Overview:
This 187-nucleotide RNA sequence from Roseburia inulinivorans belongs to the Rfam family "Lysine riboswitch aptamer". Its family is annotated with lysine biosynthetic process in the Gene Ontology. Pairs were carried over by alignment from the consensus structure, which is taken from published work.

[Rfam]
RNA sequence: UUGCUUGGUAGAGGUCGCGUGCUUUAUGAGUCGCUUUUUGGAUGUAUCAGGAACAGUUGAUAAGAAGCAAAAGGAAAGUACGCCGAAAGGGUAUGCAGCCUGAAGGCAUAUUACUUGGGCAUAAAGUGAAGAACUUUAUGACUGUCAUCUGAAUGGAGAUCAUUUGAGAUGGGGAGCUAUCAGAUUC
Number, nucleotide and partner (000 for none) at each position: 001u000002u000003g000004c000005u000006u182007g181008g180009u179010a178011g177012a000013g000014g000015u000016c000017g083018c082019g081020u080021g079022c078023u077024u076025u075026a000027u000028g000029a000030g000031u000032c000033g068034c067035u066036u065037u064038u063039u062040g061041g000042a000043u000044g000045u000046a000047u000048c000049a000050g000051g000052a000053a000054c000055a000056g000057u000058u000059g000060a000061u040062a039063a038064g037065a036066a035067g034068c033069a000070a000071a000072a000073g000074g000075a025076a024077a023078g022079u021080a020081c019082g018083c017084c000085g000086a000087a116088a115089g114090g112091g111092u110093a109094u108095g107096c106097a000098g000099c000100c000101u000102g000103a000104a000105g000106g096107c095108a094109u093110a092111u091112u090113a000114c089115u088116u087117g143118g142119g000120c140121a139122u138123a137124a136125a135126g134127u133128g000129a000130a000131g000132a000133a127134c126135u125136u124137u123138a122139u121140g120141a000142c118143u117144g000145u172146c171147a170148u169149c168150u167151g000152a000153a000154u000155g000156g000157a000158g000159a000160u000161c000162a000163u000164u000165u000166g000167a150168g149169a148170u147171g146172g145173g000174g000175a000176g000177c011178u010179a009180u008181c007182a006183g000184a000185u000186u000187c000

Taxonomically the source falls in Roseburia (Bacteria, Bacillati, Clostridia, Lachnospirales).